[Rfam]
RNA sequence: AUGGGGGAAACCCCAUACUCCUCACACAAUAAUCGCCCGAUUUAUCGGGCUUU
Numbered sequence: 001a002u003g004g005g006g007g008a009a010a011c012c013c014c015a016u017a018c019u020c021c022u023c024a025c026a027c028a029a030u031a032a033u034c035g036c037c038c039g040a041u042u043u044a045u046c047g048g049g050c051u052u053u
Stems, first nucleotide, its partner, number of pairs: 001016006035050006